[Rfam]
A member of the RNA family "MIR6274 microRNA precursor family" from Prunus yedoensis, 106 nucleotides long. The base pairs follow the family's consensus structure, which was predicted with RNAalifold.
RNA sequence: GGAUAGAACUGUUUUGCUAUCCCCUCCAAUAACACAAUGAUACGUGGAAAAAUUAUCUUACGUGUCAUUGCGUUAUUGGCCGGAAAUAGCAAAAAGUACACUAUCC
Numbered sequence: 001g002g003a004u005a006g007a008a009c010u011g012u013u014u015u016g017c018u019a020u021c022c023c024c025u026c027c028a029a030u031a032a033c034a035c036a037a038u039g040a041u042a043c044g045u046g047g048a049a050a051a052a053u054u055a056u057c058u059u060a061c062g063u064g065u066c067a068u069u070g071c072g073u074u075a076u077u078g079g080c081c082g083g084a085a086a087u088a089g090c091a092a093a094a095a096g097u098a099c100a101c102u103a104u105c106c
Stems, first nucleotide, its partner, number of pairs: 002105004012094009022083002026079008035070013049056001